[Rfam]
RNA sequence: GCAUCGGUUUAGCUCAGCGGUUACUUCAUCGUUUGUGUACGAAAAACUUUGUCUGUCCUCGCAUAGACGGGUUCGACCGCGGGUGCCGUCCGAUGUUUUU
Numbered sequence: 001g002c003a004u005c006g007g008u009u010u011a012g013c014u015c016a017g018c019g020g021u022u023a024c025u026u027c028a029u030c031g032u033u034u035g036u037g038u039a040c041g042a043a044a045a046a047c048u049u050u051g052u053c054u055g056u057c058c059u060c061g062c063a064u065a066g067a068c069g070g071g072u073u074c075g076a077c078c079g080c081g082g083g084u085g086c087c088g089u090c091c092g093a094u095g096u097u098u099u100u
Stems, first nucleotide, its partner, number of pairs: 002095006012084004017080004026076002
The family of this 100-nucleotide sequence from Oryzias latipes is "Vault RNA". The source organism's lineage runs through Eukaryota, Teleostei, Ovalentaria, Adrianichthyidae and Oryzias. Rfam's curators put it in the seed alignment. From the family's description: This family of RNAs are found as part of the enigmatic vault ribonucleoprotein complex.